[Rfam]
RNA sequence: UGGAGGACUGAGAAGGUUUAGCAGCUCGUUCUGUGCUGUUAUAACUGGUUAUAACCUCCUAAAUGAAAAUGAAGGCAGAUGCGACAAACCGGCUACAUGUGACACAUUAGAGCUGACGUUGUGUUUGUGUACAGAUG
Numbered sequence: 001u002g003g004a005g006g007a008c009u010g011a012g013a014a015g016g017u018u019u020a021g022c023a024g025c026u027c028g029u030u031c032u033g034u035g036c037u038g039u040u041a042u043a044a045c046u047g048g049u050u051a052u053a054a055c056c057u058c059c060u061a062a063a064u065g066a067a068a069a070u071g072a073a074g075g076c077a078g079a080u081g082c083g084a085c086a087a088a089c090c091g092g093c094u095a096c097a098u099g100u101g102a103c104a105c106a107u108u109a110g111a112g113c114u115g116a117c118g119u120u121g122u123g124u125u126u127g128u129g130u131a132c133a134g135a136u137g
Base pairs, nucleotide, nucleotide: 002059003058004057005056006055015046016045017044018043019041020040021039022038023037024036025035080129081128082127086124088122089121096110
A member of the RNA family "Small nucleolar RNA SNORA47" from Coregonus sp. 'balchen', 137 nucleotides long. A search with the family's covariance model found it, with a score of 65 bits. A reference for the family is Huttenhofer et al. (2001), "RNomics: an experimental approach that identifies 201 candidates for novel, small, non-messenger RNAs in mouse", EMBO J.